RNA sequence: UCAUGUCAGCUAACGUAUCACGACUAAAUGUAAGGGUAAAGCGGCUGAUGUAUUGUCCAGGCGCAAAAUCAUAUGGCCUGACCACAGAACGUGCCGCUUACUCUGGAAGGUGACUUUAUAAAUUGCCGCCGAAUUAUGUGACGCUGAAACGCGCAUUUUU
Numbered sequence: 001u002c003a004u005g006u007c008a009g010c011u012a013a014c015g016u017a018u019c020a021c022g023a024c025u026a027a028a029u030g031u032a033a034g035g036g037u038a039a040a041g042c043g044g045c046u047g048a049u050g051u052a053u054u055g056u057c058c059a060g061g062c063g064c065a066a067a068a069u070c071a072u073a074u075g076g077c078c079u080g081a082c083c084a085c086a087g088a089a090c091g092u093g094c095c096g097c098u099u100a101c102u103c104u105g106g107a108a109g110g111u112g113a114c115u116u117u118a119u120a121a122a123u124u125g126c127c128g129c130c131g132a133a134u135u136a137u138g139u140g141a142c143g144c145u146g147a148a149a150c151g152c153g154c155a156u157u158u159u160u
Stems, first nucleotide, its partner, number of pairs: 004022003008018001010015001028139005035130003038104001040102002043098002046096002049093003053089001056086001058080005063074001065072001110126004142153003

This 160-nucleotide RNA sequence from Salmonella enterica belongs to the Rfam family "isrQ Hfq binding RNA". The literature on the family includes a 2008 paper in Nucleic Acids Res by Padalon-Brauch et al., "Small RNAs encoded within genetic islands of Salmonella typhimurium show host-induced expression and role in virulence". Rfam classes the family as a small RNA.